[Rfam]
RNA sequence: UUGCGGCGGGCAAGUCCUUUACGACCAGCUCCUGCUGAAUCCCCCAGGAUGGGAACAUAGCAAGGGUAAGUGGUUGAGCGGUGCGAUAGAGGUAGCUUGCCCACUU
Number, nucleotide and partner (000 for none) at each position: 001u000002u000003g000004c000005g000006g000007c000008g102009g101010g100011c099012a098013a097014g096015u095016c000017c091018u090019u089020u088021a087022c085023g084024a082025c081026c000027a000028g000029c000030u000031c000032c000033u000034g000035c000036u000037g000038a000039a000040u000041c000042c000043c000044c000045c000046a000047g000048g000049a000050u000051g000052g000053g000054a000055a000056c000057a000058u000059a000060g000061c000062a000063a000064g000065g000066g000067u000068a000069a000070g000071u000072g000073g000074u000075u000076g000077a000078g000079c000080g000081g025082u024083g000084c023085g022086a000087u021088a020089g019090a018091g017092g000093u000094a000095g015096c014097u013098u012099g011100c010101c009102c008103a000104c000105u000106u000

Rfam assigns this 106-nucleotide RNA sequence from Putridiphycobacter roseus to the family "Bacteroidales small SRP". The literature on the family includes a 2020 paper in Nat Commun by Ryan et al., "A high-resolution transcriptome map identifies small RNA regulation of metabolism in the gut microbe Bacteroides thetaiotaomicron". Lineage of the source: Bacteria > Pseudomonadati > Flavobacteriales > Crocinitomicaceae > Putridiphycobacter. Its Rfam clan is "SRP clan".